RNA sequence: UGGAAAUGAUGAAAUAGAGAUACAUGGGUGUUGAAUGUUGCAUGACUGAAAAUUUGUAAUAUGUAAUUUUCCUGGUUUAAAGUUUUAUUGAUACUUAGUAGUGUAUAGUGUGAGUGUGUGUGUACUUGUGUGUGUGCAUGUGGUGGCUAUGGAAAGGGGGCACUGAAUGGUGAUGCUGAUAUUGGAGUGCAUCUGAGGCUGUUGUAAAAAUAACUUGGGUUGUUGAUUACAACAUUGCCGAUGAUUAUAACCCAAGAACAGCUCACCUUACUAGCCCAGCACCCUAAAAUCUCUAACAGGCUCAUUAAAUGUGUCCUGUGAUCUGAUCCAA
Numbered sequence: 001u002g003g004a005a006a007u008g009a010u011g012a013a014a015u016a017g018a019g020a021u022a023c024a025u026g027g028g029u030g031u032u033g034a035a036u037g038u039u040g041c042a043u044g045a046c047u048g049a050a051a052a053u054u055u056g057u058a059a060u061a062u063g064u065a066a067u068u069u070u071c072c073u074g075g076u077u078u079a080a081a082g083u084u085u086u087a088u089u090g091a092u093a094c095u096u097a098g099u100a101g102u103g104u105a106u107a108g109u110g111u112g113a114g115u116g117u118g119u120g121u122g123u124a125c126u127u128g129u130g131u132g133u134g135u136g137c138a139u140g141u142g143g144u145g146g147c148u149a150u151g152g153a154a155a156g157g158g159g160g161c162a163c164u165g166a167a168u169g170g171u172g173a174u175g176c177u178g179a180u181a182u183u184g185g186a187g188u189g190c191a192u193c194u195g196a197g198g199c200u201g202u203u204g205u206a207a208a209a210a211u212a213a214c215u216u217g218g219g220u221u222g223u224u225g226a227u228u229a230c231a232a233c234a235u236u237g238c239c240g241a242u243g244a245u246u247a248u249a250a251c252c253c254a255a256g257a258a259c260a261g262c263u264c265a266c267c268u269u270a271c272u273a274g275c276c277c278a279g280c281a282c283c284c285u286a287a288a289a290u291c292u293c294u295a296a297c298a299g300g301c302u303c304a305u306u307a308a309a310u311g312u313g314u315c316c317u318g319u320g321a322u323c324u325g326a327u328c329c330a331a
Base pairs, nucleotide, nucleotide: 001330002329003328004327200234201233202232203231204230205229206228207227209224210223211222212221213220214219
RNA: Small Cajal body-specific RNA 7